[Rfam]
RNA sequence: GUCAGAGGCUGGGUCUUUGCGGGCAAGGUGAGUUUUCGUUUUAUUCAACUGGCCUACAAAGUCCCAGUUUUCGGC
Numbered sequence: 001g002u003c004a005g006a007g008g009c010u011g012g013g014u015c016u017u018u019g020c021g022g023g024c025a026a027g028g029u030g031a032g033u034u035u036u037c038g039u040u041u042u043a044u045u046c047a048a049c050u051g052g053c054c055u056a057c058a059a060a061g062u063c064c065c066a067g068u069u070u071u072c073g074g075c
Base pairs, nucleotide, nucleotide: 003073005071006070007069008068010066011065012064013063015061016060017059018058019057021055022054023053024052026050027049029047030046
mir-193 microRNA precursor family: a 75-nucleotide RNA sequence from Sinocyclocheilus grahami. Gene Ontology terms of the family: miRNA-mediated post-transcriptional gene silencing and RISC complex. It scores 79 bits against the family's covariance model. The literature on the family includes a 2010 paper in BMC Genomics by Linsen et al., "Small RNA expression and strain specificity in the rat".